This 123-nucleotide RNA sequence belongs to the Rfam family "LOOT RNA".
Rfam's curators put it in the seed alignment.
Rfam classes the family as a small RNA.
RNA sequence: AGCCUAAACCUCAUAGUUUAUCUAUGAGGCAUGUGGCGCAAAAACGUUCAACGUAGAGAGCUCCUAGUCAGAGCACGCGUUGAACGUCAUAUCGGGAAACCGGUAUGGGUCCCGCAAGGGAUU
Numbered sequence: 001a002g003c004c005u006a007a008a009c010c011u012c013a014u015a016g017u018u019u020a021u022c023u024a025u026g027a028g029g030c031a032u033g034u035g036g037c038g039c040a041a042a043a044a045c046g047u048u049c050a051a052c053g054u055a056g057a058g059a060g061c062u063c064c065u066a067g068u069c070a071g072a073g074c075a076c077g078c079g080u081u082g083a084a085c086g087u088c089a090u091a092u093c094g095g096g097a098a099a100c101c102g103g104u105a106u107g108g109g110u111c112c113c114g115c116a117a118g119g120g121a122u123u
Base pairs, nucleotide, nucleotide: 002037003036004035009029010028011027012026013025014024015023045086046085047084048083049082050081051080052079053078054077058076060074061073062072063071088107089106090105091104092103093102094101095100108123109122110121111120112119113118